[Rfam]
RNA sequence: CUACAGAGAUGAGAAACAUGAACUCUCUCUUUCUGAAGCUUCAGUGGAGAAAAACAUUAGCAGAUUCUGAGUAGC
Numbered sequence: 001c002u003a004c005a006g007a008g009a010u011g012a013g014a015a016a017c018a019u020g021a022a023c024u025c026u027c028u029c030u031u032u033c034u035g036a037a038g039c040u041u042c043a044g045u046g047g048a049g050a051a052a053a054a055c056a057u058u059a060g061c062a063g064a065u066u067c068u069g070a071g072u073a074g075c
Stems, first nucleotide, its partner, number of pairs: 001074004

This 75-nucleotide RNA from Anolis carolinensis belongs to the Rfam family "Small nucleolar RNA SNORD26". The sequence is in the family's curated seed alignment. The family's consensus secondary structure was predicted with PFOLD. Clan: SNORD26 clan. Rfam classes the family as a C/D-box small nucleolar RNA. The family has 17 seed sequences and 451 matches in Rfam 15.1. A reference for the family is Tycowski et al. (1996), "A mammalian gene with introns instead of exons generating stable RNA products", Nature.